[Rfam]
RNA: Small nucleolar RNA SNORD75
Nucleotides: 067
Base pairs, nucleotide, nucleotide: 001067002066003065004064
Number, partner (000 for none) and nucleotide at each position: 001067a002066g003065c004064c005000u006000g007000u008000g009000a010000u011000g012000u013000a014000c015000a016000a017000u018000u019000u020000a021000a022000g023000a024000g025000u026000a027000g028000u029000g030000g031000a032000c033000a034000g035000a036000a037000a038000a039000g040000a041000u042000u043000u044000c045000u046000g047000a048000a049000a050000a051000u052000c053000a054000u055000c056000a057000a058000c059000a060000c061000u062000g063000a064004g065003g066002c067001u